[Rfam]
RNA sequence: AGUAAUAGAAUAGGCUUAAAGGCGCGGUCGGCUACCUCCUCAAGAAGGGAGGGAUGCCCUGUGACAGUUUUCGAAGCACUCAUGCUUAUGCUUACCUUUGGUACGCUUAUCGUAGCGCUGCUGUCCAAUAAACGCAAAUAGACCGCCCUCUAGCAAAGGAAUGCGGUCUAUUCGUGUAUCUCAUUCAUUGCGGAGCCUACCGCCCUUAAAAGCGGCUAUUGCGCAGAGAGUCGUGUUGACGCACGGCUC
Number, nucleotide and partner (000 for none) at each position: 001a000002g222003u221004a220005a219006u000007a217008g216009a000010a000011u199012a198013g197014g196015c195016u194017u153018a000019a151020a000021g149022g148023c000024g146025c000026g143027g000028u141029c000030g000031g000032c000033u054034a000035c052036c051037u050038c049039c048040u047041c000042a000043a000044g000045a000046a000047g040048g039049g038050a037051g036052g035053g000054a033055u000056g000057c000058c000059c000060u000061g000062u000063g125064a124065c123066a122067g121068u120069u000070u000071u000072c000073g000074a000075a000076g091077c090078a089079c000080u000081c000082a000083u000084g000085c000086u000087u000088a000089u078090g077091c076092u000093u000094a000095c000096c000097u000098u000099u000100g000101g116102u115103a000104c000105g000106c000107u000108u000109a000110u000111c000112g000113u000114a000115g102116c101117g000118c000119u000120g068121c067122u066123g065124u064125c063126c000127a000128a000129u000130a000131a000132a000133c000134g000135c000136a000137a000138a000139u000140a000141g028142a000143c026144c000145g000146c024147c000148c022149u021150c000151u019152a000153g017154c000155a000156a000157a000158g000159g000160a000161a000162u000163g000164c000165g181166g000167u000168c000169u000170a000171u000172u000173c000174g000175u000176g000177u000178a000179u000180c000181u165182c000183a000184u000185u000186c000187a000188u000189u000190g000191c000192g000193g000194a016195g015196c014197c013198u012199a011200c215201c214202g213203c212204c000205c000206u000207u000208a000209a000210a000211a000212g203213c202214g201215g200216c008217u007218a000219u005220u004221g003222c002223g000224c000225a000226g000227a000228g249229a248230g247231u246232c245233g244234u243235g242236u241237u000238g000239a000240c000241g236242c235243a234244c233245g232246g231247c230248u229249c228